Shown here is an 80-nucleotide sequence from Alligator sinensis, a member of the family "Mammalian CPEB3 ribozyme". Lineage of the source: Eukaryota > Metazoa > Sauria > Archosauria > Alligator.

Nucleotides: 080
Base pairs, nucleotide, nucleotide: 016048018047020045021044024080025079026078027077028076029075030074031043032042033041052069053068054067055066057064058063
Number, partner (000 for none) and nucleotide at each position: 001000a002000g003000a004000g005000g006000u007000c008000a009000c010000a011000a012000c013000u014000u015000u016048g017000a018047g019000a020045u021044u022000a023000u024080a025079g026078c027077a028076g029075a030074a031043g032042u033041g034000c035000u036000u037000a038000a039000g040000a041033c042032a043031c044021a045020g046000a047018c048016u049000u050000g051000u052069c053068a054067g055066a056000c057064u058063u059000c060000a061000u062000u063058g064057a065000a066055u067054c068053u069052g070000u071000g072000a073000a074030u075029u076028c077027u078026g079025c080024u